[Rfam]
RNA: mir-181 microRNA precursor family
RNA sequence: UGCCUUCGGUGAACAUUCAACGCUGUCGGUGAGUUUGAGCUCUAAAACGAAACCAUCGACCGUUGACUGUACCCUGAGGGACA
Numbered sequence: 001u002g003c004c005u006u007c008g009g010u011g012a013a014c015a016u017u018c019a020a021c022g023c024u025g026u027c028g029g030u031g032a033g034u035u036u037g038a039g040c041u042c043u044a045a046a047a048c049g050a051a052a053c054c055a056u057c058g059a060c061c062g063u064u065g066a067c068u069g070u071a072c073c074c075u076g077a078g079g080g081a082c083a
Stems, first nucleotide, its partner, number of pairs: 001083002004079005014069002017066006025060007033053004